[Rfam]
RNA sequence: GGCCCGCCUCUUGCUCAUUGAAAACCAGGUAGCCAACGGCGGUUGCCCCCAAACCCCGACAAAGACGUCGC
Numbered sequence: 001g002g003c004c005c006g007c008c009u010c011u012u013g014c015u016c017a018u019u020g021a022a023a024a025c026c027a028g029g030u031a032g033c034c035a036a037c038g039g040c041g042g043u044u045g046c047c048c049c050c051a052a053a054c055c056c057c058g059a060c061a062a063a064g065a066c067g068u069c070g071c
Stems, first nucleotide, its partner, number of pairs: 028047007